[Rfam]
RNA sequence: UUCGGGUGAGGUAGUAGGUUGUAUAGUUUUAGGGUCAUUCCCGAGCUGUCAAAUGACUAUACAACUUACUGUCUUUCCUGA
Numbered sequence: 001u002u003c004g005g006g007u008g009a010g011g012u013a014g015u016a017g018g019u020u021g022u023a024u025a026g027u028u029u030u031a032g033g034g035u036c037a038u039u040c041c042c043g044a045g046c047u048g049u050c051a052a053a054u055g056a057c058u059a060u061a062c063a064a065c066u067u068a069c070u071g072u073c074u075u076u077c078c079u080g081a
Stems, first nucleotide, its partner, number of pairs: 001081002004078003008075020032042003
A member of the RNA family "let-7 microRNA precursor family" from Pleuronectes platessa, 81 nucleotides long. The organism belongs to Pleuronectes, within Eukaryota. Rfam links the family to the GO terms RISC complex and miRNA-mediated post-transcriptional gene silencing. A reference for the family is Rougvie (2001), "Control of developmental timing in animals", Nat Rev Genet. It scores 65 bits against the family's covariance model. The family is grouped with related families in Rfam's "let-7 microRNA precursor clan".